Background:
This 78-nucleotide RNA sequence from Shigella flexneri belongs to the Rfam family "Nucleoid-associated noncoding RNA 4 (CssrE)". Lineage of the source: Bacteria > Gammaproteobacteria > Enterobacterales > Enterobacteriaceae > Shigella flexneri 2a. About the family: In E. coli small RNA transcribed from repeated extragenic palindromic element (REP325) called nucleoid-associated ncRNA 4 (nRNA4) collaborates HU protein in condensing the DNA. The secondary structure but not the sequence of the RNA is important in nucleoid condensation. Also identified in Shigella as CssrE. A search with the family's covariance model found it, with a score of 70 bits. By type it is a small RNA. For this family Rfam cites "An integrated approach for finding overlooked genes in Shigella" (Peng et al., PLoS One, 2011).

RNA sequence: GAUCGGAUAAGGCGUUCACGCCGCAUCCGGCGGUUGCGCUCCGAUGCCUGAUGCGACGCUGACGCGUCUUAUCAGGCC
Numbered sequence: 001g002a003u004c005g006g007a008u009a010a011g012g013c014g015u016u017c018a019c020g021c022c023g024c025a026u027c028c029g030g031c032g033g034u035u036g037c038g039c040u041c042c043g044a045u046g047c048c049u050g051a052u053g054c055g056a057c058g059c060u061g062a063c064g065c066g067u068c069u070u071a072u073c074a075g076g077c078c
Base pairs, nucleotide, nucleotide: 003030004029005028006027007026008025011022012021013020014019046077047076048075049074050073051072052071053070055068056067057066058065059064